[Rfam]
RNA sequence: GGUUUUUUUUAGGUUUUGAUUUUUAUUGCAUUUUCAUAAGAAAAUCAAAACAUAAAGAAAAUG
Numbered sequence: 001g002g003u004u005u006u007u008u009u010u011a012g013g014u015u016u017u018g019a020u021u022u023u024u025a026u027u028g029c030a031u032u033u034u035c036a037u038a039a040g041a042a043a044a045u046c047a048a049a050a051c052a053u054a055a056a057g058a059a060a061a062u063g
Base pairs, nucleotide, nucleotide: 004060005059006058007057008056009055010054011053013051014050015049016048017047018046019045020044021043022042023041024040
Rfam assigns this 63-nucleotide RNA sequence from Aquila chrysaetos to the family "mir-737 microRNA precursor family". Rfam 15.1 lists 233 matches to the family in 207 species. Taxonomically the source falls in Aquila chrysaetos (Eukaryota, Vertebrata, Coelurosauria, Telluraves).